RNA: Plastid-clpP 5UTR RNA
Organism: Chenopodium quinoa
RNA sequence: AAUUUAGUUUGUAAGAACUAAGCGAAACAAAUCUAUUCUAUACCCGAUAAGUAGCAAUACGCAAUGGGG
Dot-bracket structure: ..((.(((((....))))).))....................(((.....(((....))).....))).